[Rfam]
RNA: tp2
RNA sequence: GGUAUUCCUUAUCUGUUUCUAAUGGUUUAUUUGGAGCCUAUCUUCCUGUGCUUUAACUCAAGGCUAAAGCACGUGCCCUGGUGAAAACACCGGAAGAUAGGCCCAUCAGUUUAUCCCCGUCAUACUUCAA
Numbered sequence: 001g002g003u004a005u006u007c008c009u010u011a012u013c014u015g016u017u018u019c020u021a022a023u024g025g026u027u028u029a030u031u032u033g034g035a036g037c038c039u040a041u042c043u044u045c046c047u048g049u050g051c052u053u054u055a056a057c058u059c060a061a062g063g064c065u066a067a068a069g070c071a072c073g074u075g076c077c078c079u080g081g082u083g084a085a086a087a088c089a090c091c092g093g094a095a096g097a098u099a100g101g102c103c104c105a106u107c108a109g110u111u112u113a114u115c116c117c118c119g120u121c122a123u124a125c126u127u128c129a130a
Stems, first nucleotide, its partner, number of pairs: 001115004022110001023108003034104001036102007045093002048090002052086003